[Rfam]
RNA sequence: CUACAGUGAUAACAGUAUUUUUUGUUAACAACAGUUCACCUAGUGAGUAUUGAUAUUUUGGGUCUGAGUGA
Numbered sequence: 001c002u003a004c005a006g007u008g009a010u011a012a013c014a015g016u017a018u019u020u021u022u023u024g025u026u027a028a029c030a031a032c033a034g035u036u037c038a039c040c041u042a043g044u045g046a047g048u049a050u051u052g053a054u055a056u057u058u059u060g061g062g063u064c065u066g067a068g069u070g071a
Stems, first nucleotide, its partner, number of pairs: 002070003008026004
Record summary
Shown here is a 71-nucleotide sequence from Felis catus, a member of the family "Small nucleolar RNA SNORD56". Lineage of the source: Eukaryota > Sarcopterygii > Theria > Laurasiatheria > Felis. For this family Rfam cites "Purified box C/D snoRNPs are able to reproduce site-specific 2'-O-methylation of target RNA in vitro" (Galardi et al., Mol Cell Biol, 2002). Pairs were carried over by alignment from the consensus structure, which was predicted with PFOLD.